Rfam assigns this 81-nucleotide sequence from Diatraea saccharalis to the family "mir-2765 microRNA precursor family". A search with the family's covariance model found it, with a score of 79 bits.
Nucleotides: 081
Base pairs, nucleotide, nucleotide: 003079004078005077007075008074009073010072011071012070016066017065019063020062021061022060023059026056027055029053030052031051032050033049034048035047036046037045
Number, partner (000 for none) and nucleotide at each position: 001000a002000u003079c004078g005077u006000u007075c008074c009073u010072g011071g012070g013000c014000u015000u016066g017065g018000u019063a020062a021061c022060u023059c024000c025000a026056c027055c028000a029053c030052c031051g032050u033049u034048g035047g036046c037045g038000u039000u040000c041000a042000u043000u044000c045037c046036g047035u048034c049033a050032a051031c052030g053029g054000a055027g056026g057000a058000c059023g060022a061021g062020u063019u064000c065017c066016c067000g068000c069000u070012c071011c072010u073009g074008g075007g076000c077005g078004c079003g080000u081000u

Source information: NCBI's taxonomy places the organism under Eukaryota, Metazoa, Pterygota, Neolepidoptera, Diatraea. The family has 6 seed sequences and 109 matches in Rfam 15.1.